[Rfam]
This 102-nucleotide RNA sequence from Tritonibacter mobilis belongs to the Rfam family "L2-Alphaproteobacteria ribosomal protein leader". For this family Rfam cites "Discovery of 20 novel ribosomal leader candidates in bacteria and archaea" (Eckert and Weinberg, BMC Microbiol, 2020). The source organism's lineage runs through Bacteria, Pseudomonadati, Alphaproteobacteria, Paracoccaceae and Tritonibacter.

RNA sequence: GGUCACCUGAACCCGGCGUGGAUGCGCCAAGGCAGGGGGCUUUAACAUAGCGGUGCCAAAGACAAGAACCUAAGGCACUGCACGCUAAACGGAAGACAGAAA
Numbered sequence: 001g002g003u004c005a006c007c008u009g010a011a012c013c014c015g016g017c018g019u020g021g022a023u024g025c026g027c028c029a030a031g032g033c034a035g036g037g038g039g040c041u042u043u044a045a046c047a048u049a050g051c052g053g054u055g056c057c058a059a060a061g062a063c064a065a066g067a068a069c070c071u072a073a074g075g076c077a078c079u080g081c082a083c084g085c086u087a088a089a090c091g092g093a094a095g096a097c098a099g100a101a102a
Stems, first nucleotide, its partner, number of pairs: 001041004006037003050081007